[Rfam]
RNA sequence: AGCAGAGUAGAUGUUUGUGCGUUAAGUGCUGUUCGGACGGGGAGUUGCCGAACAGACGAAAAGCAUGCCUUGCGGUACAGACGUCGCAUCCCGCUGCU
Numbered sequence: 001a002g003c004a005g006a007g008u009a010g011a012u013g014u015u016u017g018u019g020c021g022u023u024a025a026g027u028g029c030u031g032u033u034c035g036g037a038c039g040g041g042g043a044g045u046u047g048c049c050g051a052a053c054a055g056a057c058g059a060a061a062a063g064c065a066u067g068c069c070u071u072g073c074g075g076u077a078c079a080g081a082c083g084u085c086g087c088a089u090c091c092c093g094c095u096g097c098u
Stems, first nucleotide, its partner, number of pairs: 001098005010085010020074003026057002029055008040091003044087001061071003
THF (Tetrahydrofolate) riboswitch aptamer: a 98-nucleotide sequence from Hydrogenoanaerobacterium saccharovorans. Tetrahydrofolate (THF) riboswitch was first reported for Ames et al. as an RNA motif in 5' untranslated (5'-UTR)regions of folate transport and biosynthesis genes in Firmicutes genomes. Gene Ontology term of the family: tetrahydrofolate metabolic process. Pairs were carried over by alignment from the consensus structure, which is taken from published work. A search with the family's covariance model found it, with a score of 93 bits. Lineage of the source: Bacteria > Bacillati > Clostridia > Eubacteriales > Hydrogenoanaerobacterium. On this family, see Trausch et al., Structure 2011: "The structure of a tetrahydrofolate-sensing riboswitch reveals two ligand binding sites in a single aptamer".